[Rfam]
RNA: RtT RNA
RNA sequence: UGCCCCACCGCACAGAGAGGGGUGAGAACCCUCGACUGGGUUCGACAAAACGCAUUGCGUUUUGGACAGCCGCAGGCUGCCCGUAGGGUGAGCGCAGCGAAUCACCCCCUCUCUCACCGCCA
Dot-bracket structure: ..............(((((((.(.........((.((...(.((...((..........))......(.(.....).)...)).).)))).............)..))))))).........
Numbered sequence: 001u002g003c004c005c006c007a008c009c010g011c012a013c014a015g016a017g018a019g020g021g022g023u024g025a026g027a028a029c030c031c032u033c034g035a036c037u038g039g040g041u042u043c044g045a046c047a048a049a050a051c052g053c054a055u056u057g058c059g060u061u062u063u064g065g066a067c068a069g070c071c072g073c074a075g076g077c078u079g080c081c082c083g084u085a086g087g088g089u090g091a092g093c094g095c096a097g098c099g100a101a102u103c104a105c106c107c108c109c110u111c112u113c114u115c116a117c118c119g120c121c122a
Stems, first nucleotide, its partner, number of pairs: 015113007023104001033090002036088002041085001043083002048061002068078001070076001